RNA sequence: GCACUGUGCUAAAAUUGCAGGAACUAAGAUUCUAUCUUGGUUUUUGUAAUAAUGCUAGCAGAGUACACACAAGAAGAAAAGUAACUGCACUGGAUUGCAAAGACUGGGGUGGACCUCUUUCUUAAUGUCCAGUGUCCUAUGUCAUAAGAUUCGGUGCAAUAAGU
Numbered sequence: 001g002c003a004c005u006g007u008g009c010u011a012a013a014a015u016u017g018c019a020g021g022a023a024c025u026a027a028g029a030u031u032c033u034a035u036c037u038u039g040g041u042u043u044u045u046g047u048a049a050u051a052a053u054g055c056u057a058g059c060a061g062a063g064u065a066c067a068c069a070c071a072a073g074a075a076g077a078a079a080a081g082u083a084a085c086u087g088c089a090c091u092g093g094a095u096u097g098c099a100a101a102g103a104c105u106g107g108g109g110u111g112g113a114c115c116u117c118u119u120u121c122u123u124a125a126u127g128u129c130c131a132g133u134g135u136c137c138u139a140u141g142u143c144a145u146a147a148g149a150u151u152c153g154g155u156g157c158a159a160u161a162a163g164u
Stems, first nucleotide, its partner, number of pairs: 004063002007060005014053004020044002023041008086158009106135001108133001110131004
Rfam assigns this 164-nucleotide RNA sequence to the family "Small nucleolar RNA SNORA81". The literature on the family includes a 2005 paper in Nucleic Acids Res by Gu et al., "A novel experimental approach for systematic identification of box H/ACA snoRNAs from eukaryotes". Rfam links the family to the GO terms RNA processing and nucleolus. By type it is an H/ACA-box small nucleolar RNA.